RNA sequence: UGGAUCAAUGAUGACUAUUGGUGACAUAUUAGUCAUAUGAUGAAUACGUGUCUAGAACUCUGCGGUCUGU
Numbered sequence: 001u002g003g004a005u006c007a008a009u010g011a012u013g014a015c016u017a018u019u020g021g022u023g024a025c026a027u028a029u030u031a032g033u034c035a036u037a038u039g040a041u042g043a044a045u046a047c048g049u050g051u052c053u054a055g056a057a058c059u060c061u062g063c064g065g066u067c068u069g070u
Stems, first nucleotide, its partner, number of pairs: 002068005